[Rfam]
A member of the RNA family "c-di-AMP riboswitch aptamer (ydaO/yuaA leader)" from Streptosporangium saharense, 151 nucleotides long.

RNA sequence: AGUGCUGCGCCGCCGAAUCCCCGACUCGGGGAACCGGGGACCCACCCUCCAGCCGUCCCCCGGGGUGAAUCCGAAGUGCCACCGGCGCUCCGGUAGGGCUGCCUCGGCCCGAACCCGUCAGCUAACCCGGUAGGCGGCCGAGAGAGGAGCC
Numbered sequence: 001a002g003u004g005c006u007g008c009g010c011c012g013c014c015g016a017a018u019c020c021c022c023g024a025c026u027c028g029g030g031g032a033a034c035c036g037g038g039g040a041c042c043c044a045c046c047c048u049c050c051a052g053c054c055g056u057c058c059c060c061c062g063g064g065g066u067g068a069a070u071c072c073g074a075a076g077u078g079c080c081a082c083c084g085g086c087g088c089u090c091c092g093g094u095a096g097g098g099c100u101g102c103c104u105c106g107g108c109c110c111g112a113a114c115c116c117g118u119c120a121g122c123u124a125a126c127c128c129g130g131u132a133g134g135c136g137g138c139c140g141a142g143a144g145a146g147g148a149g150c151c
Stems, first nucleotide, its partner, number of pairs: 011136004018032005033131006043062001063116003071093003096110004
It scores 76 bits against the family's covariance model. Lineage of the source: Bacteria > Bacillati > Actinomycetota > Streptosporangiales > Streptosporangium.